[Rfam]
RNA sequence: AUCUUUCAAUCGUUGAUCUGAAGCGGAGGAACCCAGUUUGGGGCUUGUCUUUGCUGUCUCUUUUAUGACUGUUUCUUUUACAAGUUGUAAAGGUCAUCAAAGAAGGAUAUCUCUCAAUCCUAGCCCGUCAGCUAACUUCGUCGGCGUUGAGGGGAGACUGC
Numbered sequence: 001a002u003c004u005u006u007c008a009a010u011c012g013u014u015g016a017u018c019u020g021a022a023g024c025g026g027a028g029g030a031a032c033c034c035a036g037u038u039u040g041g042g043g044c045u046u047g048u049c050u051u052u053g054c055u056g057u058c059u060c061u062u063u064u065a066u067g068a069c070u071g072u073u074u075c076u077u078u079u080a081c082a083a084g085u086u087g088u089a090a091a092g093g094u095c096a097u098c099a100a101a102g103a104a105g106g107a108u109a110u111c112u113c114u115c116a117a118u119c120c121u122a123g124c125c126c127g128u129c130a131g132c133u134a135a136c137u138u139c140g141u142c143g144g145c146g147u148u149g150a151g152g153g154g155a156g157a158c159u160g161c
Base pairs, nucleotide, nucleotide: 002021003020023141024140025139026138027137028136033040041126042125043124049102050101051100052099105120106119107118108117
c-di-AMP riboswitch aptamer (ydaO/yuaA leader): a 161-nucleotide sequence from Oscillatoria sp. FACHB-1407. Rfam describes the family as follows. This family represents a conserved RNA structure found upstream of the ydaO and yuaA genes in Bacillus subtilis and related genes in other bacteria. Gene Ontology terms of the family: regulation of gene expression and cyclic-di-AMP binding. Pairs were carried over by alignment from the consensus structure.